RNA sequence: GAAAACACCAAGCCUAAUCCGAUCCACGGGCAAUCCUCUAGGGGAGUUCAUGGAAAGGAGCCGGGGAACCACCAGCAUUCAUCUGGGGUGAAUUCCCGCAAGAGCGGCGAUCUGAUCGCCGUGGAGUGGGGUAGGGAAGCUUCCGUCUCCCAACCCGACAGCUAACCCGGUAGGCGCACAGGAAGAUUUG
Number, nucleotide and partner (000 for none) at each position: 001g000002a000003a000004a000005a000006c000007a000008c000009c000010a000011a000012g175013c174014c173015u000016a000017a000018u059019c058020c057021g000022a000023u000024c000025c000026a000027c000028g000029g000030g000031c000032a000033a000034u000035c000036c000037u000038c000039u000040a000041g000042g000043g000044g000045a000046g000047u000048u000049c000050a000051u000052g000053g000054a000055a000056a000057g020058g019059a018060g171061c170062c169063g168064g167065g166066g000067a000068a000069c000070c085071a084072c000073c000074a000075g000076c000077a000078u000079u000080c000081a000082u000083c000084u071085g070086g156087g155088g154089u000090g000091a000092a000093u000094u131095c130096c129097c128098g127099c126100a000101a000102g000103a000104g000105c000106g000107g000108c000109g000110a000111u000112c000113u000114g000115a000116u000117c000118g000119c000120c000121g000122u000123g000124g000125a000126g099127u098128g097129g096130g095131g094132u000133a000134g151135g150136g149137a148138a000139g000140c000141u000142u000143c000144c000145g000146u000147c000148u137149c136150c135151c134152a000153a000154c088155c087156c086157g000158a000159c000160a000161g000162c000163u000164a000165a000166c065167c064168c063169g062170g061171u060172a000173g014174g013175c012176g000177c000178a000179c000180a000181g000182g000183a000184a000185g000186a000187u000188u000189u000190g000

The record is a 190-nucleotide sequence from Corynebacterium testudinoris, which matches "c-di-AMP riboswitch aptamer (ydaO/yuaA leader)" in Rfam. The organism belongs to Corynebacterium, within Bacteria.